This 84-nucleotide RNA belongs to the Rfam family "tRNA". Rfam classes the family as a transfer RNA.

RNA sequence: GGAUGGAUGUCUGAGCGGUUGAAAGAGUCGGUCUUGAAAACCGAAGUAUUGAGAAUACCGGGGGUUCGAAUCCCUCUCCAUCCG
Dot-bracket structure: (((((((..(((...........))).(((((.......)))))...............(((((.......)))))))))))).